A member of the RNA family "ATPC RNA motif" from Synechococcus sp. RS9917, 90 nucleotides long. By type it is a non-coding RNA gene. The family's consensus secondary structure is taken from published work. Lineage of the source: Bacteria > Bacillati > Synechococcales > Synechococcaceae > Synechococcus.
RNA sequence: UUCGCCGGUCCCAGGCGAUCUGCUAAACACUUCGCGCGCAGGUCCGGGUGGAACCGGGCCCACUCCUUUCAGGGGAGUGUCCCGGGCGCG
Numbered sequence: 001u002u003c004g005c006c007g008g009u010c011c012c013a014g015g016c017g018a019u020c021u022g023c024u025a026a027a028c029a030c031u032u033c034g035c036g037c038g039c040a041g042g043u044c045c046g047g048g049u050g051g052a053a054c055c056g057g058g059c060c061c062a063c064u065c066c067u068u069u070c071a072g073g074g075g076a077g078u079g080u081c082c083c084g085g086g087c088g089c090g
Base pairs, nucleotide, nucleotide: 002018003017004016005015006014035090036089037088038087039086041060042059043058044057045056046055047054061079062078063077064076065075066074067073